Rfam assigns this 161-nucleotide RNA from Glycomyces buryatensis to the family "ZMP/ZTP riboswitch aptamer (pfl RNA motif)". Taxonomically the source falls in Glycomyces (Bacteria, Actinomycetota, Glycomycetales, Glycomycetaceae). The match comes from Rfam's covariance-model search (47 bits).

RNA sequence: CGGUGCUGUCGCGACUGGCGAGGACGUUUUCGAAGUUUCCCGUGGCACGGACCGGGCAGCUCGUUGUUGAGGGGGAACUCCCGAGGACGUUCGCAGGUGGAGCACCACCAGGGAGCGGCACUGCAAACCUGUUACUGCGGUCGAACGCCUGGGCCGCAGUC
Numbered sequence: 001c002g003g004u005g006c007u008g009u010c011g012c013g014a015c016u017g018g019c020g021a022g023g024a025c026g027u028u029u030u031c032g033a034a035g036u037u038u039c040c041c042g043u044g045g046c047a048c049g050g051a052c053c054g055g056g057c058a059g060c061u062c063g064u065u066g067u068u069g070a071g072g073g074g075g076a077a078c079u080c081c082c083g084a085g086g087a088c089g090u091u092c093g094c095a096g097g098u099g100g101a102g103c104a105c106c107a108c109c110a111g112g113g114a115g116c117g118g119c120a121c122u123g124c125a126a127a128c129c130u131g132u133u134a135c136u137g138c139g140g141u142c143g144a145a146c147g148c149c150u151g152g153g154c155c156g157c158a159g160u161c
Stems, first nucleotide, its partner, number of pairs: 003124003007120006015112002017149004097108004138156005